[Rfam]
RNA sequence: UUUGGUGCUCGUGAUGACUUGAGACUUUUUUCCCCAUCAGAGCGGAAGUGUUGAAUUCUUUGCUAUUAGCCAGAACUUGUCUGACUGCACCAAU
Numbered sequence: 001u002u003u004g005g006u007g008c009u010c011g012u013g014a015u016g017a018c019u020u021g022a023g024a025c026u027u028u029u030u031u032c033c034c035c036a037u038c039a040g041a042g043c044g045g046a047a048g049u050g051u052u053g054a055a056u057u058c059u060u061u062g063c064u065a066u067u068a069g070c071c072a073g074a075a076c077u078u079g080u081c082u083g084a085c086u087g088c089a090c091c092a093a094u
Stems, first nucleotide, its partner, number of pairs: 002093007
RNA: Small nucleolar SNORD12/SNORD106
Organism: Naja naja